The family of this 43-nucleotide sequence from Falsochrobactrum ovis is "Guanidine-II riboswitch aptamer (mini-ykkC)". Pairs were carried over by alignment from the consensus structure, which is taken from published work.
[Rfam]
RNA sequence: CGCAGGACGACCUGCGCCGGUGUUCGCAUAGGGGACGGCCCCA
Number, nucleotide and partner (000 for none) at each position: 001c016002g015003c014004a013005g012006g011007a000008c000009g000010a000011c006012c005013u004014g003015c002016g001017c000018c000019g000020g000021u000022g000023u000024u000025c000026g000027c000028a000029u000030a000031g042032g041033g040034g039035a000036c000037g000038g000039c034040c033041c032042c031043a000
Lineage of the source: Bacteria > Pseudomonadati > Hyphomicrobiales > Brucellaceae > Falsochrobactrum. About the family: Simpler in structure and has fewer highly conserved nucleotide positions than the ykkC-yxkD leader. Despite this each of its two stem-loop structures directly bind free guanidine.